[Rfam]
RNA sequence: ACAAAACAGGCAAGGAGUUCAAUUUCUUGCCACUUUCGCGGUCAAGUCUUGGGAGGAUCAGGUCUUAGGCGCGUUUAUUCGCAGCCCCGGCAACGGUAAAAGAUCACGCGAUACUAAAAACAAGGCUUUCAUGCCUUGUUUUUUUUU
Numbered sequence: 001a002c003a004a005a006a007c008a009g010g011c012a013a014g015g016a017g018u019u020c021a022a023u024u025u026c027u028u029g030c031c032a033c034u035u036u037c038g039c040g041g042u043c044a045a046g047u048c049u050u051g052g053g054a055g056g057a058u059c060a061g062g063u064c065u066u067a068g069g070c071g072c073g074u075u076u077a078u079u080c081g082c083a084g085c086c087c088c089g090g091c092a093a094c095g096g097u098a099a100a101a102g103a104u105c106a107c108g109c110g111a112u113a114c115u116a117a118a119a120a121c122a123a124g125g126c127u128u129u130c131a132u133g134c135c136u137u138g139u140u141u142u143u144u145u146u147u
Base pairs, nucleotide, nucleotide: 003147004146005145006144011029012028013027014026015025016024037110038109039108040107046058047057048056049055061105062104063103064102065101068086069085070084071082072081073080087096088095089094119140120139121138122137123136124135125134126133